[Rfam]
RNA sequence: CUUCCUCAUUUAGCGCCAGUGCCCGGAAACGGGACGACGAGGAGAAGGGUUAUCGAAAAUUCGGCGGGUGCCCUUCCGUAGCUCUUCGCUGCGUGAUGUAUCGGCAAAUAUGCGGGUAACUGCAAAACAAAUACGAUACAACGAAGAAAA
Numbered sequence: 001c002u003u004c005c006u007c008a009u010u011u012a013g014c015g016c017c018a019g020u021g022c023c024c025g026g027a028a029a030c031g032g033g034a035c036g037a038c039g040a041g042g043a044g045a046a047g048g049g050u051u052a053u054c055g056a057a058a059a060u061u062c063g064g065c066g067g068g069u070g071c072c073c074u075u076c077c078g079u080a081g082c083u084c085u086u087c088g089c090u091g092c093g094u095g096a097u098g099u100a101u102c103g104g105c106a107a108a109u110a111u112g113c114g115g116g117u118a119a120c121u122g123c124a125a126a127a128c129a130a131a132u133a134c135g136a137u138a139c140a141a142c143g144a145a146g147a148a149a150a
Base pairs, nucleotide, nucleotide: 022033023032024031025030044076045075046074047073048072053064054063055062056061077093078092079091080090081089082088097140098139099138100137101136102135103134111124112123113122114121115120